[Rfam]
Shown here is a 305-nucleotide RNA from Pleuronectes platessa, a member of the family "Nuclear RNase P". Rfam's curators write: Ribonuclease P (RNase P) is a ubiquitous endoribonuclease, found in archaea, bacteria and eukarya as well as chloroplasts and mitochondria. Gene Ontology terms of the family: tRNA processing, ribonuclease P activity and ribonuclease P complex. The family's RNA type in Rfam is ribozyme. NCBI's taxonomy places the organism under Eukaryota, Gnathostomata, Osteoglossocephalai, Acanthomorphata, Pleuronectes.
RNA sequence: GUGGGCGGAAGCUCAUUGUAGAGGUCACGUGCUGAGUGCUCGUCACUCCGACCAAUCACCUCGGGGAAGGUCUGAGACAGGAGCCAAUAGUUGCCCUCACAGGGUGUCACCUGAUUCGGGUGAGCGAGUGCACAGACAUAAUGGAUCCCAGUGGACUGUCGUAGCAGGAGAAGCUUGGCGGUCUCUUAGCGCCGCCUAGUGGAUGUGACAUUCACCGGAUUGGAAUCACUCGCGGCUGGCAAAUGAGUGCGAUGUAUGAGGUGGUGCACAGCUCCACAACCCAAUUCAGACUACUCUCCCCCCAC
Numbered sequence: 001g002u003g004g005g006c007g008g009a010a011g012c013u014c015a016u017u018g019u020a021g022a023g024g025u026c027a028c029g030u031g032c033u034g035a036g037u038g039c040u041c042g043u044c045a046c047u048c049c050g051a052c053c054a055a056u057c058a059c060c061u062c063g064g065g066g067a068a069g070g071u072c073u074g075a076g077a078c079a080g081g082a083g084c085c086a087a088u089a090g091u092u093g094c095c096c097u098c099a100c101a102g103g104g105u106g107u108c109a110c111c112u113g114a115u116u117c118g119g120g121u122g123a124g125c126g127a128g129u130g131c132a133c134a135g136a137c138a139u140a141a142u143g144g145a146u147c148c149c150a151g152u153g154g155a156c157u158g159u160c161g162u163a164g165c166a167g168g169a170g171a172a173g174c175u176u177g178g179c180g181g182u183c184u185c186u187u188a189g190c191g192c193c194g195c196c197u198a199g200u201g202g203a204u205g206u207g208a209c210a211u212u213c214a215c216c217g218g219a220u221u222g223g224a225a226u227c228a229c230u231c232g233c234g235g236c237u238g239g240c241a242a243a244u245g246a247g248u249g250c251g252a253u254g255u256a257u258g259a260g261g262u263g264g265u266g267c268a269c270a271g272c273u274c275c276a277c278a279a280c281c282c283a284a285u286u287c288a289g290a291c292u293a294c295u296c297u298c299c300c301c302c303c304a305c
Base pairs, nucleotide, nucleotide: 001305002304003303004302007299008298009297012260013259014258015257016256021062022061023060024059034048035047036046037045038044072289073288074287075286076285082237083236084235085234092106093105094104095103096102107123108122109121110120111119112118124233125232126231127230128229129228130227146219147218261277262276263275264274266272267271